A member of the RNA family "Plastid-rpl16 group II-D1 intron" from Gossypium aridum, 41 nucleotides long. Rfam describes the family as follows. Plastid-rpl16 is a non-coding RNA (ncRNA) recognised in plastids. Gene Ontology term of the family: Group II intron splicing. Lineage of the source: Eukaryota > Viridiplantae > Mesangiospermae > eudicotyledons > Gossypium.

RNA sequence: CUUAAGUCAAUAAAGACUGAGAAGGUUGACUCAAGAACAAA
Numbered sequence: 001c002u003u004a005a006g007u008c009a010a011u012a013a014a015g016a017c018u019g020a021g022a023a024g025g026u027u028g029a030c031u032c033a034a035g036a037a038c039a040a041a
Base pairs, nucleotide, nucleotide: 001035002034005031006030007029008028009027010026011025